[Rfam]
RNA sequence: AUGGAAAUGAUGAUUAUUUCCCCAAAUGAUCUUACACUGAAUAAACUGUGCGAUCUUUCUAUUCAGAGAUUCCAAGCUAGAAAUCUGAUCCUU
Number, nucleotide and partner (000 for none) at each position: 001a093002u000003g091004g090005a089006a000007a000008u000009g000010a000011u000012g000013a000014u000015u000016a000017u000018u000019u000020c000021c000022c000023c000024a000025a000026a000027u000028g000029a000030u000031c000032u000033u000034a000035c000036a000037c000038u000039g000040a000041a000042u000043a000044a000045a000046c000047u000048g000049u000050g000051c000052g000053a000054u000055c000056u000057u000058u000059c000060u000061a000062u000063u000064c000065a000066g000067a000068g000069a000070u000071u000072c000073c000074a000075a000076g000077c000078u000079a000080g000081a000082a000083a000084u000085c000086u000087g000088a000089u005090c004091c003092u000093u001

Notes
Small nucleolar RNA Z103: a 93-nucleotide sequence from Populus tomentosa. Rfam links the family to the GO terms nucleolus and RNA processing. Rfam 15.1 lists 2,844 matches to the family in 233 species. NCBI's taxonomy places the organism under Eukaryota, Streptophyta, Magnoliopsida, Mesangiospermae, Populus.